[Rfam]
RNA: SAM (S-adenosyl methionine) riboswitch aptamer
Organism: Nostocoides japonicum
RNA sequence: GGUCACGAGACCCAGCACCAAGCCCCGGCUGGCUGGGCGGCAACCCUCCUCUCGCGGUGGGGUGCCCCGGGAGACGACCUGGUCGGCGCCACCCGGCGUCGGCAAGCGCGGGUC
Numbered sequence: 001g002g003u004c005a006c007g008a009g010a011c012c013c014a015g016c017a018c019c020a021a022g023c024c025c026c027g028g029c030u031g032g033c034u035g036g037g038c039g040g041c042a043a044c045c046c047u048c049c050u051c052u053c054g055c056g057g058u059g060g061g062g063u064g065c066c067c068c069g070g071g072a073g074a075c076g077a078c079c080u081g082g083u084c085g086g087c088g089c090c091a092c093c094c095g096g097c098g099u100c101g102g103c104a105a106g107c108g109c110g111g112g113u114c
Stems, first nucleotide, its partner, number of pairs: 001079004009038001011037006021030002039066003044062003048057002082103009